The record is a 77-nucleotide RNA from Rhizophagus clarus, which matches "tRNA" in Rfam. Taxonomically the source falls in Rhizophagus (Eukaryota, Opisthokonta, Fungi, Glomeraceae). The base pairs follow the family's consensus structure, which is taken from published work. It scores 47 bits against the family's covariance model. The family's RNA type in Rfam is transfer RNA.
[Rfam]
RNA sequence: GCCUAGUUAGUUCAAUUGUUAGAACACCACACCUCACAACCUGAAUGGAAAUGCGGGUUCAAUUCCUGCACUGGGCU
Numbered sequence: 001g002c003c004u005a006g007u008u009a010g011u012u013c014a015a016u017u018g019u020u021a022g023a024a025c026a027c028c029a030c031a032c033c034u035c036a037c038a039a040c041c042u043g044a045a046u047g048g049a050a051a052u053g054c055g056g057g058u059u060c061a062a063u064u065c066c067u068g069c070a071c072u073g074g075g076c077u
Stems, first nucleotide, its partner, number of pairs: 001076007010025004027048003053069005